Rfam assigns this 595-nucleotide sequence from Halosaccharopolyspora lacisalsi to the family "Saccharopolyspora sRNA 389". Pairs were carried over by alignment from the consensus structure, which was predicted with RNAfold. On this family, see Liu et al., PLoS One 2013: "Prediction and characterization of small non-coding RNAs related to secondary metabolites in Saccharopolyspora erythraea". The family's RNA type in Rfam is antisense RNA.
[Rfam]
RNA sequence: ACCAGGUUCGUGGUGGUGCGGUGCAGGAAGUCCGCGCGGGCGUGCCGGACCUUGCGGUGCGCGCGGGCCACCUUGCGCUUGGCUUUGCGCCGGUUCGCGCUGCCCUUCUGCUUGCGGGCCAUGCGCCGCUGGUAGCGGGCGAGGUUGCGGGCCUUGCGGUCCAGGUGCUUCGGAUUGGCGAUGGUCUCGCCGGUAGACAGCACCGCGAAGUCUUUCACCCCGAGAUCGAUACCGAUGGAUUCGCCGGUCGGCGCGGCCGGUUCGGAAUCGUCGGUGUCCACGGCGAACGUCACGUACCAGCGCCCGUCCGGCUCACGGGAGACGAUGACCGUCGUGGGGUUGAUUGUGGCCGGGUCGAUGCCGGGCCACGACCACACGAACCGCAAUGGAGUCGACUGCUUCGCCAACGUCAACUGCCCGUUACGCAGCUUGAAGGCACUGCGGGUGUAGUGCGCCGACUGCUUGCCGGUGCGGUUCUUGAACCGCGGAUACUUCGCCCGUCCGGCGAAGAAGUUCUGGUACGCGGUGUGCUGGUGCCGCAGCGUCUGCUGCAACGGCACCGACGACACUUCCGACAGGAACGCCAGCUCAUCGG
Numbered sequence: 001a002c003c004a005g006g007u008u009c010g011u012g013g014u015g016g017u018g019c020g021g022u023g024c025a026g027g028a029a030g031u032c033c034g035c036g037c038g039g040g041c042g043u044g045c046c047g048g049a050c051c052u053u054g055c056g057g058u059g060c061g062c063g064c065g066g067g068c069c070a071c072c073u074u075g076c077g078c079u080u081g082g083c084u085u086u087g088c089g090c091c092g093g094u095u096c097g098c099g100c101u102g103c104c105c106u107u108c109u110g111c112u113u114g115c116g117g118g119c120c121a122u123g124c125g126c127c128g129c130u131g132g133u134a135g136c137g138g139g140c141g142a143g144g145u146u147g148c149g150g151g152c153c154u155u156g157c158g159g160u161c162c163a164g165g166u167g168c169u170u171c172g173g174a175u176u177g178g179c180g181a182u183g184g185u186c187u188c189g190c191c192g193g194u195a196g197a198c199a200g201c202a203c204c205g206c207g208a209a210g211u212c213u214u215u216c217a218c219c220c221c222g223a224g225a226u227c228g229a230u231a232c233c234g235a236u237g238g239a240u241u242c243g244c245c246g247g248u249c250g251g252c253g254c255g256g257c258c259g260g261u262u263c264g265g266a267a268u269c270g271u272c273g274g275u276g277u278c279c280a281c282g283g284c285g286a287a288c289g290u291c292a293c294g295u296a297c298c299a300g301c302g303c304c305c306g307u308c309c310g311g312c313u314c315a316c317g318g319g320a321g322a323c324g325a326u327g328a329c330c331g332u333c334g335u336g337g338g339g340u341u342g343a344u345u346g347u348g349g350c351c352g353g354g355u356c357g358a359u360g361c362c363g364g365g366c367c368a369c370g371a372c373c374a375c376a377c378g379a380a381c382c383g384c385a386a387u388g389g390a391g392u393c394g395a396c397u398g399c400u401u402c403g404c405c406a407a408c409g410u411c412a413a414c415u416g417c418c419c420g421u422u423a424c425g426c427a428g429c430u431u432g433a434a435g436g437c438a439c440u441g442c443g444g445g446u447g448u449a450g451u452g453c454g455c456c457g458a459c460u461g462c463u464u465g466c467c468g469g470u471g472c473g474g475u476u477c478u479u480g481a482a483c484c485g486c487g488g489a490u491a492c493u494u495c496g497c498c499c500g501u502c503c504g505g506c507g508a509a510g511a512a513g514u515u516c517u518g519g520u521a522c523g524c525g526g527u528g529u530g531c532u533g534g535u536g537c538c539g540c541a542g543c544g545u546c547u548g549c550u551g552c553a554a555c556g557g558c559a560c561c562g563a564c565g566a567c568a569c570u571u572c573c574g575a576c577a578g579g580a581a582c583g584c585c586a587g588c589u590c591a592u593c594g595g
Base pairs, nucleotide, nucleotide: 002016003015004014017580019578021576022575023033025031040068041067043065044064046061047060049058050057051056070145071144072143073142074141075140076139078137082133083132084131087129088128089127091125092124095121096118098116099115102111103110149213150212151211152210154208155207156206157205158204159203160202162200164198166197170193171192172191173190178188180186181185220574223571224570226568230267232265233264234263235262236260238258240256242255243254244253269565270564271563272562273561274560275559276558277557278556281551282550283549284548285547287545288544289543290542295536296535297534298533299532300531301530302529304526305525306524307523310351311350312349314346315345319341320340323337325335326334359471360470361469362468363467365464367461368460373454375452376451377450380446381445382444387441388440389439391437392436393435398430400428401427402425403424409418472518473517474516477513478512479511486504487503488502489501490500582594583593